[Rfam]
RNA sequence: GGUAAGACGCGCGGGAGCCCGGCGGACCGGGCUGAGAGGAGAGCGUGAGGCUCUCGACCGCCCACGACCUGAUCCGGGUAAUGCCGGCGAAGGGAGCGCUGUGUCCCAUACA
Numbered sequence: 001g002g003u004a005a006g007a008c009g010c011g012c013g014g015g016a017g018c019c020c021g022g023c024g025g026a027c028c029g030g031g032c033u034g035a036g037a038g039g040a041g042a043g044c045g046u047g048a049g050g051c052u053c054u055c056g057a058c059c060g061c062c063c064a065c066g067a068c069c070u071g072a073u074c075c076g077g078g079u080a081a082u083g084c085c086g087g088c089g090a091a092g093g094g095a096g097c098g099c100u101g102u103g104u105c106c107c108a109u110a111c112a
Stems, first nucleotide, its partner, number of pairs: 006100001008098003011061004017032005039055005068093003074087004
RNA: TPP riboswitch aptamer (THI element)
Organism: Microbispora rosea